[Rfam]
This 65-nucleotide RNA sequence from Gossypium klotzschianum belongs to the Rfam family "U7 small nuclear RNA".
The source organism's lineage runs through Eukaryota, Streptophytina, Mesangiospermae, rosids and Gossypium.
RNA sequence: UAAUUUUUCUUUUCUUUUAUUUGCUUCUAGCAGGUUUCUUUAGUUUAUGACUAGAAGAAACCCGU
Number, nucleotide and partner (000 for none) at each position: 001u000002a000003a000004u000005u000006u000007u000008u000009c000010u000011u000012u000013u000014c000015u000016u000017u000018u000019a000020u000021u000022u000023g000024c000025u000026u000027c000028u000029a000030g000031c000032a000033g062034g061035u060036u059037u058038c000039u057040u056041u055042a052043g051044u050045u000046u000047a000048u000049g000050a044051c043052u042053a000054g000055a041056a040057g039058a037059a036060a035061c034062c033063c000064g000065u000

The family's consensus secondary structure was predicted with PFOLD.